[Rfam]
RNA sequence: GUAGUGAUGAAGCAAUUCAAACGCUGGACAGGACUCGGGGGCAGUACCCGACGCCUCCACCAUAAUUACUUGAGGACAAUAUGUUUGAUAGAUUAACAGAGUUUUUUAUAAAGUUUUUUAAGAUACAAGAAAAGACACCAGUUAGAUAUUUAUCUGGUGUUGGUAAAUCAAGUAAUUAUGAUGGGGGCGAAAAAGGAUCGACUGGUAGUCAUUAGAAAAGUGGAGCUAUCCCGAUGUAAGCUGGGUUAACGCGAACAAAAAGACUAAACGCAAACGAUAAUUUUGCACCUCAAGAUUUUGCUCUAGCAGCAUAA
Numbered sequence: 001g002u003a004g005u006g007a008u009g010a011a012g013c014a015a016u017u018c019a020a021a022c023g024c025u026g027g028a029c030a031g032g033a034c035u036c037g038g039g040g041g042c043a044g045u046a047c048c049c050g051a052c053g054c055c056u057c058c059a060c061c062a063u064a065a066u067u068a069c070u071u072g073a074g075g076a077c078a079a080u081a082u083g084u085u086u087g088a089u090a091g092a093u094u095a096a097c098a099g100a101g102u103u104u105u106u107u108a109u110a111a112a113g114u115u116u117u118u119u120a121a122g123a124u125a126c127a128a129g130a131a132a133a134g135a136c137a138c139c140a141g142u143u144a145g146a147u148a149u150u151u152a153u154c155u156g157g158u159g160u161u162g163g164u165a166a167a168u169c170a171a172g173u174a175a176u177u178a179u180g181a182u183g184g185g186g187g188c189g190a191a192a193a194a195g196g197a198u199c200g201a202c203u204g205g206u207a208g209u210c211a212u213u214a215g216a217a218a219a220g221u222g223g224a225g226c227u228a229u230c231c232c233g234a235u236g237u238a239a240g241c242u243g244g245g246u247u248a249a250c251g252c253g254a255a256c257a258a259a260a261a262g263a264c265u266a267a268a269c270g271c272a273a274a275c276g277a278u279a280a281u282u283u284u285g286c287a288c289c290u291c292a293a294g295a296u297u298u299u300g301c302u303c304u305a306g307c308a309g310c311a312u313a314a
Stems, first nucleotide, its partner, number of pairs: 001229004013222002016219001025211003029204003035051005052189007231244003
Dot-bracket structure: ((((........((.(........(((.(((...(((((.......)))))(((((((............................................................................................................................)))))))............)))....))).......).))...)))).(((........)))......................................................................

A member of the RNA family "permuted transfer-messenger RNA" from a Saprospirales bacterium, 314 nucleotides long. It is one of the family's seed sequences. By type it is a non-coding RNA gene. The base pairs follow the family's consensus structure, which is taken from published work.